[Rfam]
Nucleotides: 115
Base pairs, nucleotide, nucleotide: 008101010099011066012065013064014063017034018033019032020031021030041059043057044056071096072095073094074093077090078089079088080087
Number, partner (000 for none) and nucleotide at each position: 001000a002000u003000c004000g005000a006000a007000u008101c009000g010099c011066a012065g013064g014063g015000g016000c017034g018033c019032u020031g021030g022000a023000c024000g025000c026000a027000a028000g029000u030021c031020c032019g033018g034017c035000u036000g037000a038000g039000a040000u041059c042000a043057g044056g045000g046000c047000g048000u049000a050000u051000g052000g053000c054000c055000g056044c057043c058000c059041g060000u061000g062000u063014c064013c065012c066011u067000u068000a069000a070000a071096c072095c073094u074093g075000a076000u077090c078089c079088g080087g081000g082000u083000a084000a085000u086000g087080c088079c089078g090077g091000c092000g093074u094073a095072g096071g097000a098000a099010g100000a101008g102000u103000a104000u105000u106000c107000g108000a109000c110000g111000a112000u113000a114000g115000a
This 115-nucleotide RNA sequence from Flavonifractor plautii belongs to the Rfam family "TPP riboswitch aptamer (THI element)". The organism belongs to Flavonifractor plautii, within Bacteria. Pairs were carried over by alignment from the consensus structure, which is taken from published work.